[Rfam]
RNA: c-di-AMP riboswitch aptamer (ydaO/yuaA leader)
Organism: Arthrobacter sp. PAMC25564
RNA sequence: GCGGAUCAGCGGCAGAACCACUUUCUGGCAGGGGCGGGGGAACCACUUCCGGCUGUUUCUUCAACAGCCUCGGGGUGAAGUCCGUCAGCAGCAUGCACGCUCCACCGAGGGGCCUCUUGGGUGCCCCGGUGCCUGGUGCUUGCCACGGCGGGCCGGGUCUUUGAUCUCUCUGACCCGAAUCCGACAGCUAACUCCGCAGGCUCUCCAGAGAGGAACC
Numbered sequence: 001g002c003g004g005a006u007c008a009g010c011g012g013c014a015g016a017a018c019c020a021c022u023u024u025c026u027g028g029c030a031g032g033g034g035c036g037g038g039g040g041a042a043c044c045a046c047u048u049c050c051g052g053c054u055g056u057u058u059c060u061u062c063a064a065c066a067g068c069c070u071c072g073g074g075g076u077g078a079a080g081u082c083c084g085u086c087a088g089c090a091g092c093a094u095g096c097a098c099g100c101u102c103c104a105c106c107g108a109g110g111g112g113c114c115u116c117u118u119g120g121g122u123g124c125c126c127c128g129g130u131g132c133c134u135g136g137u138g139c140u141u142g143c144c145a146c147g148g149c150g151g152g153c154c155g156g157g158u159c160u161u162u163g164a165u166c167u168c169u170c171u172g173a174c175c176c177g178a179a180u181c182c183g184a185c186a187g188c189u190a191a192c193u194c195c196g197c198a199g200g201c202u203c204u205c206c207a208g209a210g211a212g213g214a215a216c217c
Stems, first nucleotide, its partner, number of pairs: 011202003018033002034197006044072001073182003081152006155176004